[Rfam]
RNA sequence: CCCCUAAUGGGAAGUGAAGACCCCGUGGAGCUUUACUGCAGCCUGUCGUUGGGUUGUGGUGUUAGAUGUGAAGGAUAGGUAGUAGGCAUCGAAGCGCAGGCGCCAGCUUGCGUGGAGCCGCCCUUGGGAUACUACCCUUCUAACACUAUAACCCUCACUCGUUCAGAGGACACCGAUUGGUGGGCAGUUUGGGUGGGGCGCCACGCCCUCGAAAAGGUAUCAAGGGCGCCCAAAGGUUGGCUCAGGUGGGUCAGAAAUCCACCCAAGAGUGCAAGAGCAAAAGCCAGCCUGAUGUGAUCCUGCACAACAAGGGAUCGCAAGCCGAAAGGCGGGUCUAGCGAACCUUUGUAUCCACUUGGUGUGGGACAAAGACGUCAGAAAAGCUACCCCGGGGAUAACAGUGUCGUCACCGGCAAGAGCACAUAUCGACCCGGUGGCUUGCUACCUCGAUGUCGGUUCUUUCCAUCCUGGCUGUGCAGCAGCAGCCAAGGGUGAGGUUGUUCGCCUAUUAAAGGGGAUCGUGAGCUGGGUUUAGACCGUCGUGAGACAGGUCGGUUACUAUCUAUCAGGGGUGUCUU
Numbered sequence: 001c002c003c004c005u006a007a008u009g010g011g012a013a014g015u016g017a018a019g020a021c022c023c024c025g026u027g028g029a030g031c032u033u034u035a036c037u038g039c040a041g042c043c044u045g046u047c048g049u050u051g052g053g054u055u056g057u058g059g060u061g062u063u064a065g066a067u068g069u070g071a072a073g074g075a076u077a078g079g080u081a082g083u084a085g086g087c088a089u090c091g092a093a094g095c096g097c098a099g100g101c102g103c104c105a106g107c108u109u110g111c112g113u114g115g116a117g118c119c120g121c122c123c124u125u126g127g128g129a130u131a132c133u134a135c136c137c138u139u140c141u142a143a144c145a146c147u148a149u150a151a152c153c154c155u156c157a158c159u160c161g162u163u164c165a166g167a168g169g170a171c172a173c174c175g176a177u178u179g180g181u182g183g184g185c186a187g188u189u190u191g192g193g194u195g196g197g198g199c200g201c202c203a204c205g206c207c208c209u210c211g212a213a214a215a216g217g218u219a220u221c222a223a224g225g226g227c228g229c230c231c232a233a234a235g236g237u238u239g240g241c242u243c244a245g246g247u248g249g250g251u252c253a254g255a256a257a258u259c260c261a262c263c264c265a266a267g268a269g270u271g272c273a274a275g276a277g278c279a280a281a282a283g284c285c286a287g288c289c290u291g292a293u294g295u296g297a298u299c300c301u302g303c304a305c306a307a308c309a310a311g312g313g314a315u316c317g318c319a320a321g322c323c324g325a326a327a328g329g330c331g332g333g334u335c336u337a338g339c340g341a342a343c344c345u346u347u348g349u350a351u352c353c354a355c356u357u358g359g360u361g362u363g364g365g366a367c368a369a370a371g372a373c374g375u376c377a378g379a380a381a382a383g384c385u386a387c388c389c390c391g392g393g394g395a396u397a398a399c400a401g402u403g404u405c406g407u408c409a410c411c412g413g414c415a416a417g418a419g420c421a422c423a424u425a426u427c428g429a430c431c432c433g434g435u436g437g438c439u440u441g442c443u444a445c446c447u448c449g450a451u452g453u454c455g456g457u458u459c460u461u462u463c464c465a466u467c468c469u470g471g472c473u474g475u476g477c478a479g480c481a482g483c484a485g486c487c488a489a490g491g492g493u494g495a496g497g498u499u500g501u502u503c504g505c506c507u508a509u510u511a512a513a514g515g516g517g518a519u520c521g522u523g524a525g526c527u528g529g530g531u532u533u534a535g536a537c538c539g540u541c542g543u544g545a546g547a548c549a550g551g552u553c554g555g556u557u558a559c560u561a562u563c564u565a566u567c568a569g570g571g572g573u574g575u576c577u578u
Base pairs, nucleotide, nucleotide: 001572002571003570004569005568007566008565010564011563012562014559015558022393023392024391025390027389028388029385030384031383032382033381035188036187037186038185042180043179045177046176047175048174051154052153053152054151055150056149057148058147059146060145061144062143063142064141065140066139068137078136079135080134081133082132085119086118087117097110098109099108100107101106158168159167160166191204192202193201194200205227206226207225208224209223230333231332236288237287238286239285240284241283242268243267245263246262247261248260249259250258269278270277293319294318295317296316297315298314299313300312301311321330323328344371345370346369347368348367351365352364353363354362403442404441406440407437408436409435410434411433412432413431417427418426454529455527456526457525458524459521460518461517462516463515464514467492468491471486472485473484474483475482495507496506497505498504535553536552537551538550539548540547541546

The family of this 578-nucleotide part of an RNA from Candidatus Syntropharchaeum butanivorans is "Archaeal large subunit ribosomal RNA". The source organism's lineage runs through Archaea, Methanobacteriati, Halobacteriota, Candidatus Syntropharchaeales and Candidatus Syntropharchaeum. The base pairs follow the family's consensus structure, which is taken from published work. The family has 91 seed sequences and 2,955 matches in Rfam 15.1.